[Rfam]
RNA sequence: CCCUUUUCGGAGACAGUGUUCCUCCAAAACUU
Numbered sequence: 001c002c003c004u005u006u007u008c009g010g011a012g013a014c015a016g017u018g019u020u021c022c023u024c025c026a027a028a029a030c031u032u
Stems, first nucleotide, its partner, number of pairs: 004029004009025003012021002014018001

Shown here is a 32-nucleotide RNA from Musa acuminata, a member of the family "Iron response element II". Rfam's curators write: IRE, TFRC, SLC40A1, SDHB, SLC11A2, CDC42BPA, ACO2, ALAS2_H.SAPIENS, CDC14A, EPAS1, ALAS2, qoxD, Hao1, NDUFS1, transferrin, Aconitate. Taxonomically the source falls in Musa acuminata (Eukaryota, Spermatophyta, Magnoliopsida, Mesangiospermae). Rfam classes the family as a cis-regulatory element.